[Rfam]
RNA sequence: UUACGGUCCAUCCGAUGAGGAUGGGAAGUAACUCAGGGAAACACACAUUGGCAAAAUGUGGGAAAUUAACUGAG
Numbered sequence: 001u002u003a004c005g006g007u008c009c010a011u012c013c014g015a016u017g018a019g020g021a022u023g024g025g026a027a028g029u030a031a032c033u034c035a036g037g038g039a040a041a042c043a044c045a046c047a048u049u050g051g052c053a054a055a056a057u058g059u060g061g062g063a064a065a066u067u068a069a070c071u072g073a074g
Base pairs, nucleotide, nucleotide: 001031002030003029004028009023010022011021012020013019032074033073034072035071036070044060045059046058047057048056049055
Background: The record is a 74-nucleotide RNA, which matches "Hairpin ribozyme 1 from viruses-like metatranscriptomes" in Rfam. The sequence is in the family's curated seed alignment. Rfam links the family to the GO term RNA nuclease activity. The family's consensus secondary structure is taken from published work.